Rfam assigns this 67-nucleotide sequence from Pontibacillus yanchengensis to the family "Bacillaceae-1 RNA". Pairs were carried over by alignment from the consensus structure, which is taken from published work. Taxonomically the source falls in Pontibacillus yanchengensis (Bacteria, Bacillati, Bacillota, Bacillaceae).
[Rfam]
RNA sequence: CACAGAGGAAGUUCGAUUAAAAUCGCUACAUCACGUAGCAACAUCGAACCAACCCACGUCAUGUGGG
Numbered sequence: 001c002a003c004a005g006a007g008g009a010a011g012u013u014c015g016a017u018u019a020a021a022a023u024c025g026c027u028a029c030a031u032c033a034c035g036u037a038g039c040a041a042c043a044u045c046g047a048a049c050c051a052a053c054c055c056a057c058g059u060c061a062u063g064u065g066g067g
Stems, first nucleotide, its partner, number of pairs: 011049007025039005053067005
Dot-bracket structure: ..........(((((((.......(((((.....)))))...)))))))...(((((.....)))))